This 130-nucleotide RNA from Ectobacillus ponti belongs to the Rfam family "Ribosomal protein L20 leader". The source organism's lineage runs through Bacteria, Bacillota, Bacilli, Bacillaceae and Ectobacillus. It is annotated as a cis-regulatory leader.

[Rfam]
RNA sequence: GAGCACAAGAAGAGGCACCCGCUUCUCACCUGAACGACGCCAAGAGCAGUUGACAGGUCAGAUGAACAGUAACGCAAUCGUUGAACGGUUACAGUGUGGGUGCAGUAUGUGCCCGCACUUUUUUAUUUGC
Numbered sequence: 001g002a003g004c005a006c007a008a009g010a011a012g013a014g015g016c017a018c019c020c021g022c023u024u025c026u027c028a029c030c031u032g033a034a035c036g037a038c039g040c041c042a043a044g045a046g047c048a049g050u051u052g053a054c055a056g057g058u059c060a061g062a063u064g065a066a067c068a069g070u071a072a073c074g075c076a077a078u079c080g081u082u083g084a085a086c087g088g089u090u091a092c093a094g095u096g097u098g099g100g101u102g103c104a105g106u107a108u109g110u111g112c113c114c115g116c117a118c119u120u121u122u123u124u125a126u127u128u129g130c
Stems, first nucleotide, its partner, number of pairs: 011026006028058003036051003039047002095117010
The base pairs follow the family's consensus structure, which was predicted with CMfinder. The match comes from Rfam's covariance-model search (76 bits).